Nucleotides: 123
Base pairs, nucleotide, nucleotide: 001123002122003121004120005119006118007117008116009115010114011113012112013111014110015109016108017107018106020104022102023101024100025099026098027097029095030094032092033091034090035089036088037087038086039085041083042082045079046078047077048076
Number, partner (000 for none) and nucleotide at each position: 001123a002122a003121u004120a005119g006118g007117a008116g009115a010114a011113u012112g013111a014110c015109a016108a017107a018106u019000a020104a021000a022102a023101u024100u025099u026098u027097u028000c029095c030094u031000c032092u033091u034090g035089a036088u037087u038086u039085u040000c041083a042082g043000c044000u045079u046078u047077u048076u049000c050000c051000u052000c053000u054000u055000g056000a057000a058000a059000a060000a061000a062000u063000u064000u065000a066000a067000a068000u069000c070000c071000a072000a073000c074000u075000a076048a077047a078046a079045a080000u081000g082042c083041u084000a085039a086038a087037a088036a089035u090034c091033a092032a093000a094030a095029g096000g097027a098026a099025a100024a101023a102022u103000c104020u105000g106018a107017u108016u109015u110014g111013u112012c113011g114010u115009u116008c117007u118006u119005c120004u121003a122002u123001u
Annotation:
This 123-nucleotide sequence from Gossypium hirsutum belongs to the Rfam family "MIR7504 microRNA precursor family". Taxonomically the source falls in Gossypium (Eukaryota, Mesangiospermae, Gunneridae, Pentapetalae).